[Rfam]
RNA sequence: AUGCCUUAAACUUAUGACUAAGGAAAUAAUUCGGGUGAUACCUGAUUCCUCACUGCUAAUGUGAGAUGUAUUUUUGAGCAGAUAAAGGUUGCCCCUAAGGUUACACGUCUAAUUUGUGGGAUCCUUGGGAGUCAAGACCUGCCCG
Number, nucleotide and partner (000 for none) at each position: 001a000002u000003g000004c023005c022006u021007u020008a019009a000010a000011c000012u000013u000014a000015u000016g000017a000018c000019u008020a007021a006022g005023g004024a000025a000026a000027u000028a047029a046030u045031u044032c000033g042034g041035g000036u000037g000038a000039u000040a000041c034042c033043u000044g031045a030046u029047u028048c000049c065050u064051c063052a062053c061054u000055g000056c000057u000058a000059a000060u000061g053062u052063g051064a050065g049066a000067u000068g000069u000070a000071u000072u000073u000074u000075u000076g000077a000078g000079c145080a000081g143082a000083u141084a000085a000086a140087g139088g138089u137090u136091g000092c000093c000094c000095c129096u128097a126098a125099g124100g123101u000102u000103a000104c120105a000106c118107g117108u116109c000110u000111a000112a000113u000114u000115u000116g108117u107118g106119g000120g104121a000122u000123c100124c099125u098126u097127g000128g096129g095130a000131g000132u000133c000134a000135a000136g090137a089138c088139c087140u086141g083142c000143c081144c000145g079